[Rfam]
RNA sequence: GGGAGUGGAUGGGGCCCGGUGGCUCUCACGGACUUCAAAUCCGCUGUAUCCCGCUAGAACCGGGAUGGGAGGGUUCGACUCCCUCCCACUCCC
Dot-bracket structure: ((((((((..((((((....))))))..((((.......))))...(((((...........)))))..((((.......)))).))))))))
The record is a 93-nucleotide RNA sequence from SAR202 cluster bacterium AC-409-J13_OGT_754m, which matches "Selenocysteine transfer RNA" in Rfam. NCBI's taxonomy places the organism under Bacteria, Bacillati, Chloroflexota, Dehalococcoidia, SAR202 cluster. The literature on the family includes a 2000 paper in FEBS Lett by Mizutani and Goto, "Eukaryotic selenocysteine tRNA has the 9/4 secondary structure". The match comes from Rfam's covariance-model search (72 bits). Gene Ontology term of the family: triplet codon-amino acid adaptor activity.